[Rfam]
RNA sequence: CAAUAAAUCAAGCUGAAUCCUAUUUAUAUAUAGGUACGGAGGAACCAAGAAUUAUGGGGUUAAUCUAGAAAAUAGUAGAUAUUUACUAGUAGGGAGCCUUCAAUCCCGAACCCGUCAGCUAACUUCGGAAGCUUUAGGAGGGAGUGGAG
Numbered sequence: 001c002a003a004u005a006a007a008u009c010a011a012g013c014u015g016a017a018u019c020c021u022a023u024u025u026a027u028a029u030a031u032a033g034g035u036a037c038g039g040a041g042g043a044a045c046c047a048a049g050a051a052u053u054a055u056g057g058g059g060u061u062a063a064u065c066u067a068g069a070a071a072a073u074a075g076u077a078g079a080u081a082u083u084u085a086c087u088a089g090u091a092g093g094g095a096g097c098c099u100u101c102a103a104u105c106c107c108g109a110a111c112c113c114g115u116c117a118g119c120u121a122a123c124u125u126c127g128g129a130a131g132c133u134u135u136a137g138g139a140g141g142g143a144g145u146g147g148a149g
Base pairs, nucleotide, nucleotide: 011133012132013131014130019034020033021032022031023030037127038126039125040124041123046056047055057113058112059111065089066088067087068086092107093106094105095104